This 133-nucleotide RNA from Streptococcus ferus belongs to the Rfam family "Streptococcus sRNA SpR19".
The match comes from Rfam's covariance-model search (93 bits).
The organism belongs to Streptococcus, within Bacteria.
The literature on the family includes a 2012 paper in PLoS Pathog by Mann et al., "Control of virulence by small RNAs in Streptococcus pneumoniae".
The family's RNA type in Rfam is small RNA.
RNA sequence: GCGUUUCUGCAGCGAGCCUGAGAGAGUGCAAGUCAGGUGAAACAAGAUAAGAAACUGGCGCUUUCUCUUGGUGAUGACCAAGUUAAUGAUGAAUAAAUGAAGUGAAAAAUUAGGGUGGAACCGCGUCUCUACG
Numbered sequence: 001g002c003g004u005u006u007c008u009g010c011a012g013c014g015a016g017c018c019u020g021a022g023a024g025a026g027u028g029c030a031a032g033u034c035a036g037g038u039g040a041a042a043c044a045a046g047a048u049a050a051g052a053a054a055c056u057g058g059c060g061c062u063u064u065c066u067c068u069u070g071g072u073g074a075u076g077a078c079c080a081a082g083u084u085a086a087u088g089a090u091g092a093a094u095a096a097a098u099g100a101a102g103u104g105a106a107a108a109a110u111u112a113g114g115g116u117g118g119a120a121c122c123g124c125g126u127c128u129c130u131a132c133g
Stems, first nucleotide, its partner, number of pairs: 001124002003121005008115001016072003021066003025062004031056003038049002075102001079099002